Actino-pnp RNA: a 61-nucleotide RNA. The match comes from Rfam's covariance-model search (50 bits).
RNA sequence: GCAAGUCAUCGGUGGAGGUGUACAGACAAUUAUUGUCUGUACACCUCCACCGAUGACUUGC
Numbered sequence: 001g002c003a004a005g006u007c008a009u010c011g012g013u014g015g016a017g018g019u020g021u022a023c024a025g026a027c028a029a030u031u032a033u034u035g036u037c038u039g040u041a042c043a044c045c046u047c048c049a050c051c052g053a054u055g056a057c058u059u060g061c
Stems, first nucleotide, its partner, number of pairs: 001061007009053005017045013
Pairs were carried over by alignment from the consensus structure, which is taken from published work.